[Rfam]
RNA sequence: AGGUCAUUUCAAAGAGAGCUUAUGGGACCAAAACCAGGAGUUCUUAAAGCUGUGGCCUAAGACUGAAGUUCUCCAUAGGAUGUAAUAGACACUUAAUAGUGCUAUGUUUUCCUGAGGACACACAAGA
Numbered sequence: 001a002g003g004u005c006a007u008u009u010c011a012a013a014g015a016g017a018g019c020u021u022a023u024g025g026g027a028c029c030a031a032a033a034c035c036a037g038g039a040g041u042u043c044u045u046a047a048a049g050c051u052g053u054g055g056c057c058u059a060a061g062a063c064u065g066a067a068g069u070u071c072u073c074c075a076u077a078g079g080a081u082g083u084a085a086u087a088g089a090c091a092c093u094u095a096a097u098a099g100u101g102c103u104a105u106g107u108u109u110u111c112c113u114g115a116g117g118a119c120a121c122a123c124a125a126g127a
Stems, first nucleotide, its partner, number of pairs: 002057006014045008023037001026035001070120001072118003077113004085105004090101004
RNA: Small nucleolar RNA SNORA25